[Rfam]
RNA sequence: CCCUGACAAGCGCACCCUGUGCUUGACUAAACCCAGACAGGAGAUUGACAUG
Numbered sequence: 001c002c003c004u005g006a007c008a009a010g011c012g013c014a015c016c017c018u019g020u021g022c023u024u025g026a027c028u029a030a031a032c033c034c035a036g037a038c039a040g041g042a043g044a045u046u047g048a049c050a051u052g
Base pairs, nucleotide, nucleotide: 002041003040004039005038007025008024009023010022011021

Description
The family of this 52-nucleotide RNA sequence is "Mu-gpT-DE RNA". Rfam's curators put it in the seed alignment. Rfam classes the family as a small RNA.